[Rfam]
Small nucleolar RNA snoR97: a 108-nucleotide RNA from Coffea arabica. The organism belongs to Coffea, within Eukaryota. A reference for the family is Marker et al. (2002), "Experimental RNomics: identification of 140 candidates for small non-messenger RNAs in the plant Arabidopsis thaliana", Curr Biol. The family's consensus secondary structure was predicted with WAR. Rfam classes the family as an H/ACA-box small nucleolar RNA. Gene Ontology terms of the family: nucleolus and RNA processing.

RNA sequence: AAUCUGUUGUGGGUUUAGGGUCUGAAAAACUCAGAGAAGUAUGUGUUGCCAUCAGCUUCUUUCUCUUGAAUGCUGACGAGAUUGGAGUUAAAUAACAACACUAAAUUU
Numbered sequence: 001a002a003u004c005u006g007u008u009g010u011g012g013g014u015u016u017a018g019g020g021u022c023u024g025a026a027a028a029a030c031u032c033a034g035a036g037a038a039g040u041a042u043g044u045g046u047u048g049c050c051a052u053c054a055g056c057u058u059c060u061u062u063c064u065c066u067u068g069a070a071u072g073c074u075g076a077c078g079a080g081a082u083u084g085g086a087g088u089u090a091a092a093u094a095a096c097a098a099c100a101c102u103a104a105a106u107u108u
Stems, first nucleotide, its partner, number of pairs: 043101006054089006062081004